[Rfam]
RNA: Cyano-1 RNA
RNA sequence: GAAUAUGUGAGGAGUACGAAUCGAAUACAGAAAGCCCCUGAAGUCGAAACACGGCAAGACGCUCAGGGGCUUUUUGUU
Numbered sequence: 001g002a003a004u005a006u007g008u009g010a011g012g013a014g015u016a017c018g019a020a021u022c023g024a025a026u027a028c029a030g031a032a033a034g035c036c037c038c039u040g041a042a043g044u045c046g047a048a049a050c051a052c053g054g055c056a057a058g059a060c061g062c063u064c065a066g067g068g069g070c071u072u073u074u075u076g077u078u
Stems, first nucleotide, its partner, number of pairs: 031073005038066004043060003